Small nucleolar RNA SNORA43: a 138-nucleotide RNA from Dipodomys ordii.
Gene Ontology terms of the family: nucleolus and RNA processing.
Rfam describes the family as follows. ACA43 is a member of the H/ACA class of snoRNA that guide the sites of modification of uridines to pseudouridines.

RNA sequence: GCUGUCCCGCACGCACCAGCACCACGGGCACAGCUGCCAUGCUGCACCUGUGACGUCGGGGCAGAGAGCAAGUGGCUAUUUCUACGCUCAGUGUUCAGAAGCCAGUGAGCACUAAGAAUGGUUUAUAGCCUAACAUUU
Numbered sequence: 001g002c003u004g005u006c007c008c009g010c011a012c013g014c015a016c017c018a019g020c021a022c023c024a025c026g027g028g029c030a031c032a033g034c035u036g037c038c039a040u041g042c043u044g045c046a047c048c049u050g051u052g053a054c055g056u057c058g059g060g061g062c063a064g065a066g067a068g069c070a071a072g073u074g075g076c077u078a079u080u081u082c083u084a085c086g087c088u089c090a091g092u093g094u095u096c097a098g099a100a101g102c103c104a105g106u107g108a109g110c111a112c113u114a115a116g117a118a119u120g121g122u123u124u125a126u127a128g129c130c131u132a133a134c135a136u137u138u
Stems, first nucleotide, its partner, number of pairs: 003063007024051004074130003082121003087116002092111006
The match comes from Rfam's covariance-model search (145 bits).